[Rfam]
RNA: Small nucleolar RNA SNORD115
Organism: Carlito syrichta
RNA sequence: GGGUCUGUAACGAAAUCUUUGUCUUGUCUCUAUAGAGGUGUUGUCUUAAAAGUCUUGCACAAUAGAGUUAUGUUGUGACCU
Numbered sequence: 001g002g003g004u005c006u007g008u009a010a011c012g013a014a015a016u017c018u019u020u021g022u023c024u025u026g027u028c029u030c031u032a033u034a035g036a037g038g039u040g041u042u043g044u045c046u047u048a049a050a051a052g053u054c055u056u057g058c059a060c061a062a063u064a065g066a067g068u069u070a071u072g073u074u075g076u077g078a079c080c081u
Stems, first nucleotide, its partner, number of pairs: 001081004005075001008072002